A member of the RNA family "U4 spliceosomal RNA" from Cervus elaphus, 166 nucleotides long. The organism belongs to Cervus elaphus, within Eukaryota. Rfam classes the family as a spliceosomal small nuclear RNA. Rfam links the family to the GO terms spliceosomal tri-snRNP complex assembly and U4 snRNP. The family's consensus secondary structure is taken from published work.
[Rfam]
RNA sequence: AGCUUUGCGCAGUGGCAGUAUCGUAGCCAAUGAGGUUUAUCCGAGGCGCGAUUAUUGCUAAUUGAAAACUUUUCCCAGAAAGUUUGUAUAAUUUGCAAUAGUGCUUAAAUUAUAAAGUAAAGUGGAAAAAGGCUAUAGAAUUUUUAUCCAUAUCACAAUCUUGAUU
Numbered sequence: 001a002g003c004u005u006u007g008c009g010c011a012g013u014g015g016c017a018g019u020a021u022c023g024u025a026g027c028c029a030a031u032g033a034g035g036u037u038u039a040u041c042c043g044a045g046g047c048g049c050g051a052u053u054a055u056u057g058c059u060a061a062u063u064g065a066a067a068a069c070u071u072u073u074c075c076c077a078g079a080a081a082g083u084u085u086g087u088a089u090a091a092u093u094u095g096c097a098a099u100a101g102u103g104c105u106u107a108a109a110u111u112a113u114a115a116a117g118u119a120a121a122g123u124g125g126a127a128a129a130a131g132g133c134u135a136u137a138g139a140a141u142u143u144u145u146a147u148c149c150a151u152a153u154c155a156c157a158a159u160c161u162u163g164a165u166u
Stems, first nucleotide, its partner, number of pairs: 020052005026047003034042002084138003089132001092129003096125001152165003